[Rfam]
A member of the RNA family "Purine riboswitch aptamer" from Natranaerobius trueperi, 102 nucleotides long. On this family, see Batey et al., Nature 2004: "Structure of a natural guanine-responsive riboswitch complexed with the metabolite hypoxanthine". A search with the family's covariance model found it, with a score of 88 bits.
RNA sequence: CGAACUUAAAUUUAAAUCUCUCGUAUAAAUUCGGGAAUAAGGCCCGAAAGUUUCUACCUAAUGACCGUAAAUCAUUUGGCUACGAGAGAAAGGGUACCUAGG
Numbered sequence: 001c002g003a004a005c006u007u008a009a010a011u012u013u014a015a016a017u018c019u020c021u022c023g024u025a026u027a028a029a030u031u032c033g034g035g036a037a038u039a040a041g042g043c044c045c046g047a048a049a050g051u052u053u054c055u056a057c058c059u060a061a062u063g064a065c066c067g068u069a070a071a072u073c074a075u076u077u078g079g080c081u082a083c084g085a086g087a088g089a090a091a092g093g094g095u096a097c098c099u100a101g102g
Stems, first nucleotide, its partner, number of pairs: 018088008030048006058078001060076005

From the family's description: Riboswitches are metabolite binding domains within certain messenger RNAs that serve as precision sensors for their corresponding targets.